[Rfam]
RNA sequence: GGCUCCUUUAAUCAAACCCAGAGAGGUUGAUAAGGAGUUAACUUUUGUAGGGCCACACCAGUGUGGUUUUUAGGGAAAGUAUAACUUCUUAUCAAUCGAUAAGAAGUUUUUUAUU
Numbered sequence: 001g002g003c004u005c006c007u008u009u010a011a012u013c014a015a016a017c018c019c020a021g022a023g024a025g026g027u028u029g030a031u032a033a034g035g036a037g038u039u040a041a042c043u044u045u046u047g048u049a050g051g052g053c054c055a056c057a058c059c060a061g062u063g064u065g066g067u068u069u070u071u072a073g074g075g076a077a078a079g080u081a082u083a084a085c086u087u088c089u090u091a092u093c094a095a096u097c098g099a100u101a102a103g104a105a106g107u108u109u110u111u112u113a114u115u
Base pairs, nucleotide, nucleotide: 003037004036005035006034007033008032015028016027017026018025044075045074046073049070050069051068052067053066054065055064056063057062081110083108084107085106086105087104088103089102090101091100092099093098
RNA: PyrR binding site
Organism: Thermohalobacter berrensis